[Rfam]
RNA sequence: CAACAAAAAGUGUUUUUUUUUGUUCACCUCCAUUUUUUGCUACACCCCAGGGUUCGGAUCCAAAUUCGCUGGGGGGUAGCAAAAAAUGGAGGUGAACAGAAAGAAAAAAACCUUUUUUGGGCCAAAGGUUUUUUUUUU
Number, nucleotide and partner (000 for none) at each position: 001c000002a000003a000004c000005a000006a000007a000008a000009a000010g000011u000012g000013u000014u000015u000016u103017u102018u101019u100020u000021u098022g097023u096024u095025c094026a093027c092028c091029u090030c089031c088032a087033u086034u085035u000036u083037u082038u081039g080040c079041u078042a077043c076044a000045c000046c000047c000048c000049a000050g000051g000052g000053u000054u000055c000056g000057g000058a000059u000060c000061c000062a000063a000064a000065u000066u000067c000068g000069c000070u000071g000072g000073g000074g000075g000076g043077u042078a041079g040080c039081a038082a037083a036084a000085a034086a033087u032088g031089g030090a029091g028092g027093u026094g025095a024096a023097c022098a021099g000100a019101a018102a017103g016104a000105a000106a000107a132108a131109a130110a129111c128112c127113u126114u125115u124116u000117u000118u000119g000120g000121g000122c000123c000124a115125a114126a113127g112128g111129u110130u109131u108132u107133u000134u000135u000136u000137u000138u000
Background: The family of this 138-nucleotide sequence from Polarella glacialis is "Phenylalanine leader peptide". Rfam 15.1 lists 379 matches to the family in 290 species. Lineage of the source: Eukaryota > Alveolata > Dinophyceae > Suessiaceae > Polarella. A reference for the family is Zurawski et al. (1978), "Nucleotide sequence of the leader region of the phenylalanine operon of Escherichia coli", Proc Natl Acad Sci U S A.